[Rfam]
RNA sequence: CCUGCUGUUCUGCCAGUAGUAUCCUACCGCCACGUGCGCCGUGCAAGAAUGGCGGAGUACGGAGCGUGCGGGACAACGUAACCCCUGACCGGAUGGUCAAGAGACAGAAUCGCGAGAAGACGUCAAUUCUGCCAGCCUCAGAAGGCGGAGGGGAAC
Dot-bracket structure: .((((((......))))))........((((.(((((.((((.((....)))))).)))))....).)))...............(((((....)))))...((.....((....)).....))...((((((..........)))))).......
Notes
The family of this 156-nucleotide sequence is "Group II catalytic intron D1-D4-7". The base pairs follow the family's consensus structure. Group II introns are found in rRNA, tRNA and mRNA of organelles in fungi, plants and protists, and also in mRNA in bacteria. The literature on the family includes a 2001 paper in Trends Genet by Bonen and Vogel, "The ins and outs of group II introns". It is one of the family's seed sequences.